[Rfam]
mir-1781 microRNA precursor family: an 85-nucleotide RNA from Anthoscopus minutus. The match comes from Rfam's covariance-model search (76 bits). Rfam 15.1 lists 312 matches to the family in 302 species. The family's consensus secondary structure was predicted with RNAalifold.
RNA sequence: CAAGGAACUUAUUGAGCACUGAGUGAUUUAAAAGCAGUCAAAUUCUUAUAGCUUUAAAUCAUUCAGCUGUGGAAUAAAUUCUUUC
Numbered sequence: 001c002a003a004g005g006a007a008c009u010u011a012u013u014g015a016g017c018a019c020u021g022a023g024u025g026a027u028u029u030a031a032a033a034g035c036a037g038u039c040a041a042a043u044u045c046u047u048a049u050a051g052c053u054u055u056a057a058a059u060c061a062u063u064c065a066g067c068u069g070u071g072g073a074a075u076a077a078a079u080u081c082u083u084u085c
Stems, first nucleotide, its partner, number of pairs: 002084006009077005016070003019066003023062010034052002